[Rfam]
RNA sequence: ACAGGAAGCCUGUGAUGUCUUAGCCGUGGUGUCUGAACCUGGCUGAAGGACUCUUCUGAAGAGAAAUCUUAGGCUCUGAGGCUUCCAGGGGA
Numbered sequence: 001a002c003a004g005g006a007a008g009c010c011u012g013u014g015a016u017g018u019c020u021u022a023g024c025c026g027u028g029g030u031g032u033c034u035g036a037a038c039c040u041g042g043c044u045g046a047a048g049g050a051c052u053c054u055u056c057u058g059a060a061g062a063g064a065a066a067u068c069u070u071a072g073g074c075u076c077u078g079a080g081g082c083u084u085c086c087a088g089g090g091g092a
Stems, first nucleotide, its partner, number of pairs: 004086007
Notes
Shown here is a 92-nucleotide RNA from Rostratula benghalensis, a member of the family "Small nucleolar RNA SNORD91 family". NCBI's taxonomy places the organism under Eukaryota, Bilateria, Sauropsida, Dinosauria, Rostratula. Rfam classes the family as a C/D-box small nucleolar RNA. For this family Rfam cites "RNomics: an experimental approach that identifies 201 candidates for novel, small, non-messenger RNAs in mouse" (Huttenhofer et al., EMBO J, 2001). The base pairs follow the family's consensus structure.